[Rfam]
RNA sequence: CCGUCCGCCACCUGGAAUCGCCUGAGCCUUUCCGGCCGCGCCCGCUACGCUGGCGUGGUGCGUGCCGUGCCCCCGGGGCUCGGCGGCGCAUAGCCGACAGCCGUCGCACUCCAGGGAGCACCCAUG
Numbered sequence: 001c002c003g004u005c006c007g008c009c010a011c012c013u014g015g016a017a018u019c020g021c022c023u024g025a026g027c028c029u030u031u032c033c034g035g036c037c038g039c040g041c042c043c044g045c046u047a048c049g050c051u052g053g054c055g056u057g058g059u060g061c062g063u064g065c066c067g068u069g070c071c072c073c074c075g076g077g078g079c080u081c082g083g084c085g086g087c088g089c090a091u092a093g094c095c096g097a098c099a100g101c102c103g104u105c106g107c108a109c110u111c112c113a114g115g116g117a118g119c120a121c122c123c124a125u126g
Stems, first nucleotide, its partner, number of pairs: 059090004064084004093107002096105003

Shown here is a 126-nucleotide RNA sequence from Actinacidiphila reveromycinica, a member of the family "Streptomyces-metH RNA".